Shown here is a 208-nucleotide RNA sequence from Streptomyces sp. ISL-1, a member of the family "Streptomyces RNA 1601". For this family Rfam cites "Deep sequencing-based identification of small non-coding RNAs in Streptomyces coelicolor" (Vockenhuber et al., RNA Biol, 2011). The source organism's lineage runs through Bacteria, Bacillati, Actinomycetes, Kitasatosporales and Streptomyces. A search with the family's covariance model found it, with a score of 174 bits. The family's RNA type in Rfam is small RNA.
[Rfam]
RNA sequence: AACGACCGGCCGGACACCUGUGUGCCCGGCCCACAAGUGGAGGCUCCGAUCUCCCACCUGGCUGUCCUCCGGGACGGCGGGUCACCGGUCAGGUGGCGCCCAUCGUUCCGUACGGACGAUGGAGCCGCCCGAUAAGCCCCGCGGUAGCACGCGGCGGUGUUCCGGUAUUCCAGGAGCUCCCGCCUGUGUCCCGUCCGGGGCAUUUUUG
Numbered sequence: 001a002a003c004g005a006c007c008g009g010c011c012g013g014a015c016a017c018c019u020g021u022g023u024g025c026c027c028g029g030c031c032c033a034c035a036a037g038u039g040g041a042g043g044c045u046c047c048g049a050u051c052u053c054c055c056a057c058c059u060g061g062c063u064g065u066c067c068u069c070c071g072g073g074a075c076g077g078c079g080g081g082u083c084a085c086c087g088g089u090c091a092g093g094u095g096g097c098g099c100c101c102a103u104c105g106u107u108c109c110g111u112a113c114g115g116a117c118g119a120u121g122g123a124g125c126c127g128c129c130c131g132a133u134a135a136g137c138c139c140c141g142c143g144g145u146a147g148c149a150c151g152c153g154g155c156g157g158u159g160u161u162c163c164g165g166u167a168u169u170c171c172a173g174g175a176g177c178u179c180c181c182g183c184c185u186g187u188g189u190c191c192c193g194u195c196c197g198g199g200g201c202a203u204u205u206u207u208g
Stems, first nucleotide, its partner, number of pairs: 004090006012027002028083005034060002037057004041052002061078007092129005100122008136201006142193003149189001151187002153184005159177005